The record is a 122-nucleotide RNA sequence from Agrobacterium bohemicum, which matches "Alphaproteobacterial ar14" in Rfam. The match comes from Rfam's covariance-model search (113 bits). The pairing is the family consensus, mapped onto this sequence. Smr14C2 was renamed NfeR1 (Nodule Formation Efficiency RNA) highly expressed in salt stress and during the symbiotic interaction on legume roots. NCBI's taxonomy places the organism under Bacteria, Pseudomonadati, Hyphomicrobiales, Rhizobiaceae, Agrobacterium.

[Rfam]
RNA sequence: AAACAUCGAAGCGACGCACUCCUCCUCCCAGCGUCGCAAGAUGUGGAUCAGCAGCACUCCUCCUCCCAGUUGCUGAUCAAGUUUAAAGCCUGCCGCACCUCCUCCCGCGGCAGGCUUUUUCC
Dot-bracket structure: ......(...(((((((.............)))))))..).....((((((((((.............)))))))))).......(((((((((((..........))))))))))).....
Numbered sequence: 001a002a003a004c005a006u007c008g009a010a011g012c013g014a015c016g017c018a019c020u021c022c023u024c025c026u027c028c029c030a031g032c033g034u035c036g037c038a039a040g041a042u043g044u045g046g047a048u049c050a051g052c053a054g055c056a057c058u059c060c061u062c063c064u065c066c067c068a069g070u071u072g073c074u075g076a077u078c079a080a081g082u083u084u085a086a087a088g089c090c091u092g093c094c095g096c097a098c099c100u101c102c103u104c105c106c107g108c109g110g111c112a113g114g115c116u117u118u119u120u121c122c
Stems, first nucleotide, its partner, number of pairs: 007040001011037007046078010086117011